The record is a 110-nucleotide RNA from Lachnotalea glycerini, which matches "TPP riboswitch aptamer (THI element)" in Rfam.
Lineage of the source: Bacteria > Bacillati > Clostridia > Lachnospirales > Lachnotalea.

RNA sequence: UAUAAAAAGACAGGGAGCUUGUGGUGCAGGCUGAGAGGAAGUAAUCAAACUUCGACCUAUAUAACCUGAUUUGGAUAAUGCCAACGUAGGGAAACAAGAGAUGAAUUCGA
Numbered sequence: 001u002a003u004a005a006a007a008a009g010a011c012a013g014g015g016a017g018c019u020u021g022u023g024g025u026g027c028a029g030g031c032u033g034a035g036a037g038g039a040a041g042u043a044a045u046c047a048a049a050c051u052u053c054g055a056c057c058u059a060u061a062u063a064a065c066c067u068g069a070u071u072u073g074g075a076u077a078a079u080g081c082c083a084a085c086g087u088a089g090g091g092a093a094a095c096a097a098g099a100g101a102u103g104a105a106u107u108c109g110a
Base pairs, nucleotide, nucleotide: 009095012058013057014056017031018030019029020028021027038053039052040051041050042049065090066089067088068087071084072083073082074081